Small nucleolar RNA Z157/R69/R10: a 97-nucleotide RNA from Lathyrus oleraceus.
The family's consensus secondary structure was predicted with PFOLD.
Gene Ontology terms of the family: RNA processing and nucleolus.
It is annotated as a C/D-box small nucleolar RNA.
The family has 10 seed sequences and 836 matches in Rfam 15.1.

RNA sequence: UAUUGUGCGGUGACGAUACUAUUGUGGACUAGAGUUUCUGAUCUGGGAAUCUUCACCCAGGAUUUGAUGACAAACCCUUGGCUGUCUGAGCACUCUU
Numbered sequence: 001u002a003u004u005g006u007g008c009g010g011u012g013a014c015g016a017u018a019c020u021a022u023u024g025u026g027g028a029c030u031a032g033a034g035u036u037u038c039u040g041a042u043c044u045g046g047g048a049a050u051c052u053u054c055a056c057c058c059a060g061g062a063u064u065u066g067a068u069g070a071c072a073a074a075c076c077c078u079u080g081g082c083u084g085u086c087u088g089a090g091c092a093c094u095c096u097u
Stems, first nucleotide, its partner, number of pairs: 002096001005093004035069001037067002042062001043060005